Background:
The record is a 132-nucleotide sequence from Varanus komodoensis, which matches "Small nucleolar RNA SNORA22" in Rfam. Pairs were carried over by alignment from the consensus structure, which was predicted with RNAfold. About the family: ACA22 is a member of the H/ACA class of snoRNA that guide the sites of modification of uridines to pseudouridines. Gene Ontology terms of the family: nucleolus and RNA processing. Rfam classes the family as an H/ACA-box small nucleolar RNA. Lineage of the source: Eukaryota > Chordata > Lepidosauria > Unidentata > Varanus. It scores 109 bits against the family's covariance model.

[Rfam]
Nucleotides: 132
Base pairs, nucleotide, nucleotide: 003054004053005052006051007050008049010048014044016041017040018039019038020037022035024033025032026031056072057071058070060068061067077118079116080115081110082109083108085105086104087103088102089101090100091099
Number, partner (000 for none) and nucleotide at each position: 001000g002000u003054g004053c005052a006051c007050a008049g009000u010048g011000a012000a013000c014044a015000c016041c017040c018039a019038a020037g021000u022035g023000a024033g025032c026031u027000c028000u029000g030000c031026a032025g033024c034000u035022c036000c037020c038019u039018u040017g041016g042000c043000a044014u045000a046000a047000c048010u049008c050007u051006g052005u053004g054003c055000u056072a057071g058070a059000a060068u061067a062000a063000c064000c065000u066000g067061u068060g069000c070058u071057u072056u073000a074000c075000c076000c077118u078000c079116u080115g081110c082109a083108u084000u085105g086104g087103a088102a089101g090100g091099a092000c093000c094000a095000u096000c097000u098000u099091u100090c101089c102088u103087u104086u105085u106000a107000c108083a109082u110081g111000u112000a113000u114000u115080c116079a117000a118077a119000a120000g121000g122000a123000c124000a125000g126000g127000a128000c129000a130000a131000u132000u